Shown here is a 79-nucleotide RNA sequence from Moellerella wisconsensis, a member of the family "RybB RNA". From the family's description: This ncRNA was identified in a large scale screen of E. coli. The function of this short RNA is unknown. The exact 5' and 3' ends of this RNA are uncertain. A reference for the family is Wassarman et al. (2001), "Identification of novel small RNAs using comparative genomics and microarrays", Genes Dev. Lineage of the source: Bacteria > Pseudomonadati > Pseudomonadota > Moellerella > Moellerella wisconsensis. A search with the family's covariance model found it, with a score of 63 bits. The family's RNA type in Rfam is small RNA.
RNA sequence: ACUGCUUUUCUUUAAUGUCCGAAUAUUGACGAACCCGAUAGUUUACCCUCAUGGUUUUCACACUAUCGGGUUUUUAUUU
Numbered sequence: 001a002c003u004g005c006u007u008u009u010c011u012u013u014a015a016u017g018u019c020c021g022a023a024u025a026u027u028g029a030c031g032a033a034c035c036c037g038a039u040a041g042u043u044u045a046c047c048c049u050c051a052u053g054g055u056u057u058u059c060a061c062a063c064u065a066u067c068g069g070g071u072u073u074u075u076a077u078u079u
Stems, first nucleotide, its partner, number of pairs: 032072011